[Rfam]
RNA sequence: AAAAAAGCAGAGUCUUGUUGUCUCCUUCGAACUUGGCUCUCGUAUACUUCAGGAAAAUUACACUCGUUGUUAUUGGGUGAACCUCUGUUAUUAUUGGUGGCUGAAAGGUUCAGUAAACGACGAUACAUAU
Numbered sequence: 001a002a003a004a005a006a007g008c009a010g011a012g013u014c015u016u017g018u019u020g021u022c023u024c025c026u027u028c029g030a031a032c033u034u035g036g037c038u039c040u041c042g043u044a045u046a047c048u049u050c051a052g053g054a055a056a057a058u059u060a061c062a063c064u065c066g067u068u069g070u071u072a073u074u075g076g077g078u079g080a081a082c083c084u085c086u087g088u089u090a091u092u093a094u095u096g097g098u099g100g101c102u103g104a105a106a107g108g109u110u111c112a113g114u115a116a117a118c119g120a121c122g123a124u125a126c127a128u129a130u
Base pairs, nucleotide, nucleotide: 005049006048007047011038012037014035017032065122066121067120068119069118070117071116078112079111080110081109082108083107084106